[Rfam]
RNA: Small nucleolar RNA SNORD100
RNA sequence: GCUGUACAUGAUGAUAAUUUGGCUCCCUCUACUGAUGACUAUGAAGAGAAUUGCCAAAAUGUUACCCAAUAUUUCUGAUGGUACAGC
Numbered sequence: 001g002c003u004g005u006a007c008a009u010g011a012u013g014a015u016a017a018u019u020u021g022g023c024u025c026c027c028u029c030u031a032c033u034g035a036u037g038a039c040u041a042u043g044a045a046g047a048g049a050a051u052u053g054c055c056a057a058a059a060u061g062u063u064a065c066c067c068a069a070u071a072u073u074u075c076u077g078a079u080g081g082u083a084c085a086g087c
Stems, first nucleotide, its partner, number of pairs: 001087006